[Rfam]
RNA sequence: AGACGGCUGCCUGGCGCGUCAGGUCGCAUAAUCCCCGGGGCCGAUAACCAUCUCUCUGGGAGCUGUCCCUACCGGCACCGUGGUGUCGGCAUACGGCGCCCACCUGCACUGGCAGGUCACGAGGGAUACGCACAUACCAACGGCCGAGGUGGCUGUCUU
Dot-bracket structure: .((((((((((((((.(((............((((..(.(((...............(((.(((((.....(((((((....)))))))...))))).))).............)))..)..)))).............))))))).))))))))))..

A member of the RNA family "6S / SsrS RNA" from Aerophototrophica crusticola, 159 nucleotides long. The organism belongs to Aerophototrophica, within Bacteria. The base pairs follow the family's consensus structure, which is taken from published work.